A member of the RNA family "U2 spliceosomal RNA" from Saccharomyces mikatae, 172 nucleotides long. The sequence is in the family's curated seed alignment. U2 is a small nuclear RNA (snRNA) component of the spliceosome (involved in pre-mRNA splicing). Complementary binding between U2 snRNA (in an area lying towards the 5' end but 3' to hairpin I) and the branchpoint sequence (BPS) of the intron results the bulging out of an unpaired adenosine, on the BPS, which initiates a nucleophilic attack at the intronic 5' splice site, thus starting the first of two transesterification reactions that mediate splicing. Rfam 15.1 lists 71,512 matches to the family in 2,642 species.
[Rfam]
Nucleotides: 172
Stems, first nucleotide, its partner, number of pairs: 004023003009018003044063006065080002067077004108127001110125003114121002130165005137157002140152001
Number, partner (000 for none) and nucleotide at each position: 001000a002000u003000c004023u005022c006021u007000u008000u009018g010017c011016c012000u013000u014000u015000u016011g017010g018009c019000u020000u021006a022005g023004a024000u025000c026000a027000a028000g029000u030000g031000u032000a033000g034000u035000a036000u037000c038000u039000g040000u041000u042000c043000u044063u045062u046061u047060c048059a049058g050000u051000g052000u053000a054000a055000c056000a057000a058049c059048u060047g061046a062045a063044a064000u065080g066079a067077c068076c069075u070074c071000a072000a073000u074070g075069a076068g077067g078000c079066u080065c081000a082000u083000u084000a085000c086000c087000u088000u089000u090000a091000a092000u093000u094000u095000g096000u097000u098000a099000c100000a101000a102000u103000a104000c105000a106000c107000a108127u109000u110125u111124u112123u113000u114121g115120g116000c117000a118000c119000a120115c121114u122000c123112a124111a125110a126000u127108a128000a129000u130165a131164a132163a133162u134161g135000a136000a137157u138156g139000g140152a141000a142000a143000g144000a145000g146000a147000u148000u149000u150000u151000u152140u153000a154000a155000g156138c157137g158000a159000g160000c161134u162133g163132u164131u165130u166000c167000c168000u169000g170000c171000u172000a
Rfam classes the family as a spliceosomal small nuclear RNA.